A member of the RNA family "transfer-messenger RNA" from Desulfoluna spongiiphila, 401 nucleotides long. A reference for the family is Laslett et al. (2002), "BRUCE: a program for the detection of transfer-messenger RNA genes in nucleotide sequences", Nucleic Acids Res. The match comes from Rfam's covariance-model search (166 bits). NCBI's taxonomy places the organism under Bacteria, Thermodesulfobacteriota, Desulfobacterales, Desulfolunaceae, Desulfoluna. Bacterial tmRNA, also known as 10Sa RNA or SsrA, is named for its dual tRNA and mRNA-like properties. Pairs were carried over by alignment from the consensus structure, which is taken from published work.

[Rfam]
RNA sequence: GGGGGCGUCCUGGGUUCGACUGGGAUAUGAGAGCUGUUUGACUGCACUCCGAGGAUGAUCGUUGGCCUCGUAAAUAAUCGAUCAAAACAUAAUUGCUGACGACUACGCAUAUGCGGUAGCUGCUUAAUUGCAGUGAACCCGCAACACUGUCUCCCACGGGAGGCACGUCACCUGGCUUUCUCACUUAGGGUCAACGUGGCGCAACUUUAAUGUGAUAGGGACCGGAAGCCUGGUAUUCCACCACCUGGCGGCGUCCGGAACUGAAAUUAAUGUCAUAAGGGGACGAUCGGAGGACCGAGCCAGCAGGUAAAAUCCGACCGUAUUGAUAUGCUGACUAUGAGUGUAGAGGUCUUACGGGGAAUUAUUUCAGGACGCGGGUUCGAUUCCCGCCGCCUCCACCA
Numbered sequence: 001g002g003g004g005g006c007g008u009c010c011u012g013g014g015u016u017c018g019a020c021u022g023g024g025a026u027a028u029g030a031g032a033g034c035u036g037u038u039u040g041a042c043u044g045c046a047c048u049c050c051g052a053g054g055a056u057g058a059u060c061g062u063u064g065g066c067c068u069c070g071u072a073a074a075u076a077a078u079c080g081a082u083c084a085a086a087a088c089a090u091a092a093u094u095g096c097u098g099a100c101g102a103c104u105a106c107g108c109a110u111a112u113g114c115g116g117u118a119g120c121u122g123c124u125u126a127a128u129u130g131c132a133g134u135g136a137a138c139c140c141g142c143a144a145c146a147c148u149g150u151c152u153c154c155c156a157c158g159g160g161a162g163g164c165a166c167g168u169c170a171c172c173u174g175g176c177u178u179u180c181u182c183a184c185u186u187a188g189g190g191u192c193a194a195c196g197u198g199g200c201g202c203a204a205c206u207u208u209a210a211u212g213u214g215a216u217a218g219g220g221a222c223c224g225g226a227a228g229c230c231u232g233g234u235a236u237u238c239c240a241c242c243a244c245c246u247g248g249c250g251g252c253g254u255c256c257g258g259a260a261c262u263g264a265a266a267u268u269a270a271u272g273u274c275a276u277a278a279g280g281g282g283a284c285g286a287u288c289g290g291a292g293g294a295c296c297g298a299g300c301c302a303g304c305a306g307g308u309a310a311a312a313u314c315c316g317a318c319c320g321u322a323u324u325g326a327u328a329u330g331c332u333g334a335c336u337a338u339g340a341g342u343g344u345a346g347a348g349g350u351c352u353u354a355c356g357g358g359g360a361a362u363u364a365u366u367u368c369a370g371g372a373c374g375c376g377g378g379u380u381c382g383a384u385u386c387c388c389g390c391c392g393c394c395u396c397c398a399c400c401a
Stems, first nucleotide, its partner, number of pairs: 001397007020370008034357004040351004045343005050070005057083005063077001115138001117136001119134005166201006173193006181215004186210001222258005228252003240276001294308003299335001301333005374390005